[Rfam]
RNA sequence: UCAUGGUGGCGGCUGGGGGCAACCCCAUGGUGGUGGCACC
Numbered sequence: 001u002c003a004u005g006g007u008g009g010c011g012g013c014u015g016g017g018g019g020c021a022a023c024c025c026c027a028u029g030g031u032g033g034u035g036g037c038a039c040c
Stems, first nucleotide, its partner, number of pairs: 001030006

Shown here is a 40-nucleotide RNA from Manis sp., a member of the family "Prion pseudoknot".
A reference for the family is Barrette et al. (2001), "Pseudoknots in prion protein mRNAs confirmed by comparative sequence analysis and pattern searching", Nucleic Acids Res.
Rfam's curators write: This family represents a predicted pseudoknot structure found in prion protein mRNA. It has been suggested that the family has a possible effect in prion protein translation.
It is annotated as a cis-regulatory element.